[Rfam]
RNA sequence: GUCCGUUCAUCCUAAUUAGGACGCAUGAGAUCCAAGCAUGGAACGGGGCUUGGG
Numbered sequence: 001g002u003c004c005g006u007u008c009a010u011c012c013u014a015a016u017u018a019g020g021a022c023g024c025a026u027g028a029g030a031u032c033c034a035a036g037c038a039u040g041g042a043a044c045g046g047g048g049c050u051u052g053g054g
Base pairs, nucleotide, nucleotide: 004045005044006043007042008041010021011020012019013018031054032053033052034051035050036049037048
The record is a 54-nucleotide sequence, which matches "Glutamine-II riboswitch aptamer" in Rfam. The base pairs follow the family's consensus structure, which is taken from published work.